[Rfam]
RNA sequence: GUCAUAUCAGCCCGAAACCUUGUCUCAACCUGCAUAAUGAUAAUCAGGUGAGCAAAGUUUCAGGUGUAUCUGAUG
Numbered sequence: 001g002u003c004a005u006a007u008c009a010g011c012c013c014g015a016a017a018c019c020u021u022g023u024c025u026c027a028a029c030c031u032g033c034a035u036a037a038u039g040a041u042a043a044u045c046a047g048g049u050g051a052g053c054a055a056a057g058u059u060u061c062a063g064g065u066g067u068a069u070c071u072g073a074u075g
Base pairs, nucleotide, nucleotide: 002073003072004071006069007068010065011064012063014061015060017058018057020055021054024052025051026050027049029048030047031046
Shown here is a 75-nucleotide sequence from Nephila pilipes, a member of the family "mir-87 microRNA precursor family". The organism belongs to Nephila, within Eukaryota.